RNA: U4 spliceosomal RNA
RNA sequence: UGCUAGGUGCUCGGGCUUUACGCUUACCAGUGAAGAUUCGUCUGAGGUAGCGUUUUUGCUAGUUGAAAACUACAACUAUGACUGCUCCAGUUGGCCUUCGGGUCGGCUGGGAAUUUUUGAAACCUUUACACUUUUUUGUGCUUUUCGUUGAUUUUUGCGGCCUUGAGCUGCAUGAUCGAAGAAG
Dot-bracket structure: ...................(((((.(((.....(((....)))..))))))))................................(((((((((((....)))))))))))............((((.....................................................))))